The record is an 87-nucleotide RNA from Pomatostomus ruficeps, which matches "mir-135 microRNA precursor family" in Rfam. Its family is annotated with gene silencing by miRNA and RISC complex in the Gene Ontology. Lineage of the source: Eukaryota > Metazoa > Chordata > Telluraves > Pomatostomus. A reference for the family is Kim et al. (2004), "Identification of many microRNAs that copurify with polyribosomes in mammalian neurons", Proc Natl Acad Sci U S A.
RNA sequence: CCUCUGCUGCGGCCUAUGGCUUUUUAUUCCUAUGUGAGUGCGUUCCCUAACUCAUGUAGGGCGGAAAGCCAUGGGCUACACGGAGGA
Numbered sequence: 001c002c003u004c005u006g007c008u009g010c011g012g013c014c015u016a017u018g019g020c021u022u023u024u025u026a027u028u029c030c031u032a033u034g035u036g037a038g039u040g041c042g043u044u045c046c047c048u049a050a051c052u053c054a055u056g057u058a059g060g061g062c063g064g065a066a067a068g069c070c071a072u073g074g075g076c077u078a079c080a081c082g083g084a085g086g087a
Base pairs, nucleotide, nucleotide: 002086003085005083008080009079011077012076013075014074015073016072017071018070019069020068021067022066023065028061029060030059031058032057033056034055035054036053037052